isrB Hfq binding RNA: an 88-nucleotide sequence from Zingiber officinale. NCBI's taxonomy places the organism under Eukaryota, Streptophyta, Streptophytina, Tracheophyta, Zingiber.

RNA sequence: AAGGGUUCCGGGCGUCCCGGAGGGGUCCGGGCGCCUUGGUUAGCUCCGGGCGCCCCGGACCCCGAAAGUCAACUUUGGUUGACUUUUU
Numbered sequence: 001a002a003g004g005g006u007u008c009c010g011g012g013c014g015u016c017c018c019g020g021a022g023g024g025g026u027c028c029g030g031g032c033g034c035c036u037u038g039g040u041u042a043g044c045u046c047c048g049g050g051c052g053c054c055c056c057g058g059a060c061c062c063c064g065a066a067a068g069u070c071a072a073c074u075u076u077g078g079u080u081g082a083c084u085u086u087u088u
Base pairs, nucleotide, nucleotide: 008020009019010017011016024061025060026059027058028057029056030055031053032052033051034050035049036048066085067084068083069082070081071080072079073078